[Rfam]
RNA: c-di-AMP riboswitch aptamer (ydaO/yuaA leader)
Organism: Fictibacillus enclensis
RNA sequence: ACCUUUAGAUCGCUUAAUUUUAAGAUUUUGUAUAAGCUUAAAAGCGGGGGAACCAAUCAUUUGGGGUGAAUCUUUUUAUUAAAGAGGGGAUACUUCCGAUUCCUAAUCCGUCAGCUAACCUCGUAAGCGUUAAACAAGGAAGAA
Dot-bracket structure: ..........((((...(((((((............)))))))((((((....((......))(((.....((((.....))))..((((.........))))...))).........)))))).))))...............